The family of this 82-nucleotide RNA from Senna tora is "Small nucleolar RNA snoR26". By type it is a C/D-box small nucleolar RNA. The family's consensus secondary structure was predicted with WAR. Rfam links the family to the GO terms RNA processing and nucleolus. A search with the family's covariance model found it, with a score of 59 bits.

RNA sequence: CGAGCAUGAGUAUGAUGAAUACUUCUAACUUGUUAUCCUUGCACUUUGAUUGCUAGUGAUGAAAUUAUGGGGAAUGAUGCUC
Numbered sequence: 001c002g003a004g005c006a007u008g009a010g011u012a013u014g015a016u017g018a019a020u021a022c023u024u025c026u027a028a029c030u031u032g033u034u035a036u037c038c039u040u041g042c043a044c045u046u047u048g049a050u051u052g053c054u055a056g057u058g059a060u061g062a063a064a065u066u067a068u069g070g071g072g073a074a075u076g077a078u079g080c081u082c
Base pairs, nucleotide, nucleotide: 002082003081004080005079006078007077